A member of the RNA family "Vault RNA" from Macrostomum lignano, 131 nucleotides long. The source organism's lineage runs through Eukaryota, Opisthokonta, Rhabditophora, Macrostomidae and Macrostomum. A reference for the family is Stadler et al. (2009), "Evolution of Vault RNAs", Mol Biol Evol. Pairs were carried over by alignment from the consensus structure, which is taken from published work.
[Rfam]
RNA sequence: UGGCAGGCUAAGCCAAGCGGUUACUUCGUUAGUGAUCUAUUCGGUAAUGAUGUUCUGCUUUUAACGGAAACAAGUUGGUUCGAUCCCAACCUAACGCCCAAAUCAAACUGCUAGCGCAAUCCUGCCUUUUA
Numbered sequence: 001u002g003g004c005a006g007g008c009u010a011a012g013c014c015a016a017g018c019g020g021u022u023a024c025u026u027c028g029u030u031a032g033u034g035a036u037c038u039a040u041u042c043g044g045u046a047a048u049g050a051u052g053u054u055c056u057g058c059u060u061u062u063a064a065c066g067g068a069a070a071c072a073a074g075u076u077g078g079u080u081c082g083a084u085c086c087c088a089a090c091c092u093a094a095c096g097c098c099c100a101a102a103u104c105a106a107a108c109u110g111c112u113a114g115c116g117c118a119a120u121c122c123u124g125c126c127u128u129u130u131a
Stems, first nucleotide, its partner, number of pairs: 002126006012115002015112001017111004026083003